[Rfam]
RNA sequence: ACGUCCUGCUCGUGAUCGUCUUCUCACCGCUCAUCGGGCAGGCGGCUGGAAGGAGAAACCCCCGCGAGGAGGUGACUCGCGGGGGUUUCUC
Numbered sequence: 001a002c003g004u005c006c007u008g009c010u011c012g013u014g015a016u017c018g019u020c021u022u023c024u025c026a027c028c029g030c031u032c033a034u035c036g037g038g039c040a041g042g043c044g045g046c047u048g049g050a051a052g053g054a055g056a057a058a059c060c061c062c063c064g065c066g067a068g069g070a071g072g073u074g075a076c077u078c079g080c081g082g083g084g085g086u087u088u089c090u091c
Stems, first nucleotide, its partner, number of pairs: 002044002005042007012034004018028001053091016